RNA sequence: GCCCCACGACAGGGGAGCGCCGUCAGGGGCGCUGAGAGUGCGCAGCGCGCAGACCCUCGAACCUGAUGCGGCUCAUACCGCCGAAGGAAGUCGAGUCUCUUCACCC
Dot-bracket structure: ......((((((((..(((((......)))))......(((((...)))))..))))....(((...((((......))))...)))..)))).............
RNA: TPP riboswitch aptamer (THI element)